[Rfam]
RNA sequence: GCCACAUGAUGAACUGAAUGGCAGCAGUAGCUCUCGGGCUGUGAUGACCUGCUAUCUAUCACCCUUUUCUGAUGGCU
Numbered sequence: 001g002c003c004a005c006a007u008g009a010u011g012a013a014c015u016g017a018a019u020g021g022c023a024g025c026a027g028u029a030g031c032u033c034u035c036g037g038g039c040u041g042u043g044a045u046g047a048c049c050u051g052c053u054a055u056c057u058a059u060c061a062c063c064c065u066u067u068u069c070u071g072a073u074g075g076c077u
Stems, first nucleotide, its partner, number of pairs: 001076004030039003
Dot-bracket structure: ((((.........................(((....))).................................)))).